Eukaryotic small subunit ribosomal RNA: a 593-nucleotide part of an RNA from Stachyamoeba sp. ATCC 50324. The base pairs follow the family's consensus structure, which is taken from published work. The literature on the family includes a 2001 paper in Science by Yusupov et al., "Crystal structure of the ribosome at 5.5 A resolution".
RNA sequence: AACCUGGUUGAUCCUGCCAGUAGCAUAUGCUCAUCUCGAAGAUUAAGCCAUGCAUGUCUAAGAGCAAUCUGUUCUCGCAAGAGAAAACCGUGGAUCUGCGAAUAGCUCCUUACAAGAGUCAUAAACAAGCUAACAAUGCUUCUACAAGGAUAGCGUUGUCAAAUGCAACGAUAAUACUUGCAAUAAGCGAUGGCGCAAAUCUCAGGAUUUGAUCGCCAUAAGUGUAGCCCUUUGGGUUACGCAGACUAACGUUACGUUAGCUUGAUAGAAGUGUUUCUUCCCUAUUAGCUGUGAUGGUAGGGUAAAGGCCUACCAUGGCUAUUAUGGGUCCGGGGAAUCAGUGUUCGAUUCCGGAGAGGCAGCCUUAGAAACAGCUACCAUGUCCAAGGAUAGCAGCAGGCGCGAAAAUUACUCAAUUCUAAUCAGAGAGAAGUAGUGAAAAGACAUAACGAUUUCCUACAUCUGUGGGAAAGUACUCUUUUGAGUUUGAAAUGGUCGCACUGUAAAUAGGUGCGAGAGUAUCAAGUGGAGGACAAGUCAGGUGCCAGCACCCGCGGUAAUUCCUGCUCCACAAGCAUAUACUAAUGUUGCUG
Numbered sequence: 001a002a003c004c005u006g007g008u009u010g011a012u013c014c015u016g017c018c019a020g021u022a023g024c025a026u027a028u029g030c031u032c033a034u035c036u037c038g039a040a041g042a043u044u045a046a047g048c049c050a051u052g053c054a055u056g057u058c059u060a061a062g063a064g065c066a067a068u069c070u071g072u073u074c075u076c077g078c079a080a081g082a083g084a085a086a087a088c089c090g091u092g093g094a095u096c097u098g099c100g101a102a103u104a105g106c107u108c109c110u111u112a113c114a115a116g117a118g119u120c121a122u123a124a125a126c127a128a129g130c131u132a133a134c135a136a137u138g139c140u141u142c143u144a145c146a147a148g149g150a151u152a153g154c155g156u157u158g159u160c161a162a163a164u165g166c167a168a169c170g171a172u173a174a175u176a177c178u179u180g181c182a183a184u185a186a187g188c189g190a191u192g193g194c195g196c197a198a199a200u201c202u203c204a205g206g207a208u209u210u211g212a213u214c215g216c217c218a219u220a221a222g223u224g225u226a227g228c229c230c231u232u233u234g235g236g237u238u239a240c241g242c243a244g245a246c247u248a249a250c251g252u253u254a255c256g257u258u259a260g261c262u263u264g265a266u267a268g269a270a271g272u273g274u275u276u277c278u279u280c281c282c283u284a285u286u287a288g289c290u291g292u293g294a295u296g297g298u299a300g301g302g303u304a305a306a307g308g309c310c311u312a313c314c315a316u317g318g319c320u321a322u323u324a325u326g327g328g329u330c331c332g333g334g335g336a337a338u339c340a341g342u343g344u345u346c347g348a349u350u351c352c353g354g355a356g357a358g359g360c361a362g363c364c365u366u367a368g369a370a371a372c373a374g375c376u377a378c379c380a381u382g383u384c385c386a387a388g389g390a391u392a393g394c395a396g397c398a399g400g401c402g403c404g405a406a407a408a409u410u411a412c413u414c415a416a417u418u419c420u421a422a423u424c425a426g427a428g429a430g431a432a433g434u435a436g437u438g439a440a441a442a443g444a445c446a447u448a449a450c451g452a453u454u455u456c457c458u459a460c461a462u463c464u465g466u467g468g469g470a471a472a473g474u475a476c477u478c479u480u481u482u483g484a485g486u487u488u489g490a491a492a493u494g495g496u497c498g499c500a501c502u503g504u505a506a507a508u509a510g511g512u513g514c515g516a517g518a519g520u521a522u523c524a525a526g527u528g529g530a531g532g533a534c535a536a537g538u539c540a541g542g543u544g545c546c547a548g549c550a551c552c553c554g555c556g557g558u559a560a561u562u563c564c565u566g567c568u569c570c571a572c573a574a575g576c577a578u579a580u581a582c583u584a585a586u587g588u589u590g591c592u593g
Stems, first nucleotide, its partner, number of pairs: 004020005022583002025580007034444003040437001041403001047401003051398003056099002061097003069090001106356003116279003121274002125272002131267002134264001145180004154170006187194002201236006214224003246260005281328003288319003294316008331353004335346004358379002361376003381392004409435001411434003417430004450489003453485003459479001461477001496516002500512003526572006539566004548555002
Taxonomically the source falls in Stachyamoeba (Eukaryota, Heterolobosea, Tetramitia, Gruberellidae).